Source information: Shown here is an 88-nucleotide RNA sequence, a member of the family "GA-cis RNA". The base pairs follow the family's consensus structure, which is taken from published work. It is annotated as a small RNA.
[Rfam]
Nucleotides: 088
Base pairs, nucleotide, nucleotide: 008046009045010044011043012042013041016032017031018030019029020028021027055078056077057076059074060073063070064069
Number, partner (000 for none) and nucleotide at each position: 001000u002000u003000g004000a005000g006000g007000a008046g009045g010044a011043a012042g013041g014000c015000a016032a017031u018030g019029c020028u021027c022000c023000a024000a025000a026000g027021g028020a029019g030018c031017a032016u033000u034000u035000a036000u037000a038000a039000u040000g041013c042012c043011u044010u045009c046008c047000g048000a049000c050000g051000a052000c053000c054000u055078g056077c057076c058000g059074c060073c061000g062000a063070c064069c065000g066000u067000a068000a069064g070063g071000g072000a073060g074059g075000g076057g077056g078055c079000g080000u081000u082000u083000c084000a085000a086000a087000c088000a